tRNA: a 73-nucleotide RNA sequence from Cyanobacterium sp. T60_A2020_053. The base pairs follow the family's consensus structure, which is taken from published work. Transfer RNA (tRNA) molecules are approximately 80 nucleotides in length. Their secondary structure includes four short double-helical elements and three loops (D, anti-codon, and T loops). Further hydrogen bonds mediate the characteristic L-shaped molecular structure. tRNAs have two regions of fundamental functional importance: the anti-codon, which is responsible for specific mRNA codon recognition, and the 3' end, to which the tRNAs corresponding amino acid is attached (by aminoacyl-tRNA synthetases). tRNAs cope with the degeneracy of the genetic code in two manners: having more than one tRNA (with a specific anti-codon) for a particular amino acid; and 'wobble' base-pairing, i.e. permitting non-standard base-pairing at the 3rd anti-codon position.

RNA sequence: ACGUCCUUAGUUCAGUUGGUAGAACGUUGGUCUCCAAAACCAAAUGUCAGGGGUUCAAGUCCUCUAGGACGUG
Dot-bracket structure: (((((((..((((........)))).(((((.......))))).....(((((.......)))))))))))).